[Rfam]
RNA: U5 spliceosomal RNA
RNA sequence: AGCUGCGUGGUGAGCACAUAGCGAAUUAUUCUUUCGCCUUUUACUAAAGAAUACCGUGUGCUCGUCACUUUAAGCAGCAUACGCCACUUUUUGGAGGGUGCUUUGUAAAAGGUCCC
Numbered sequence: 001a002g003c004u005g006c007g008u009g010g011u012g013a014g015c016a017c018a019u020a021g022c023g024a025a026u027u028a029u030u031c032u033u034u035c036g037c038c039u040u041u042u043a044c045u046a047a048a049g050a051a052u053a054c055c056g057u058g059u060g061c062u063c064g065u066c067a068c069u070u071u072a073a074g075c076a077g078c079a080u081a082c083g084c085c086a087c088u089u090u091u092u093g094g095a096g097g098g099u100g101c102u103u104u105g106u107a108a109a110a111g112g113u114c115c116c
Base pairs, nucleotide, nucleotide: 003077004076005075006074008067009066010065011064012063013062014061015060016059017058018057027053028052029051030050031049032048033047034046097115098114101111102110